[Rfam]
A member of the RNA family "algC RNA" from Enterobacteriaceae bacterium RIT714, 54 nucleotides long. The family's RNA type in Rfam is cis-regulatory element.
Nucleotides: 054
Stems, first nucleotide, its partner, number of pairs: 009024005
Number, partner (000 for none) and nucleotide at each position: 001000a002000u003000g004000a005000a006000u007000a008000a009024g010023g011022c012021u013020c014000a015000c016000u017000c018000a019000a020013g021012a022011g023010c024009c025000u026000g027000g028000g029000c030000c031000g032000a033000c034000u035000g036000u037000u038000g039000c040000c041000u042000g043000a044000a045000a046000a047000a048000g049000g050000g051000a052000u053000c054000a